[Rfam]
RNA: Small nucleolar RNA Z112
Organism: Aegilops tauschii
RNA sequence: CUGCUGUAAGUGUCUGUCCCUGUAUCAUAACCUAUGUGGUUUGCUCUGGGAUGGAAAUGCCCAUUUGCACCUGCUUGAUUCAGCUGUGCGUGAUUUAAACGGGUCUCCGA
Numbered sequence: 001c002u003g004c005u006g007u008a009a010g011u012g013u014c015u016g017u018c019c020c021u022g023u024a025u026c027a028u029a030a031c032c033u034a035u036g037u038g039g040u041u042u043g044c045u046c047u048g049g050g051a052u053g054g055a056a057a058u059g060c061c062c063a064u065u066u067g068c069a070c071c072u073g074c075u076u077g078a079u080u081c082a083g084c085u086g087u088g089c090g091u092g093a094u095u096u097a098a099a100c101g102g103g104u105c106u107c108c109g110a
Stems, first nucleotide, its partner, number of pairs: 005069008013055007024045001026043002029041004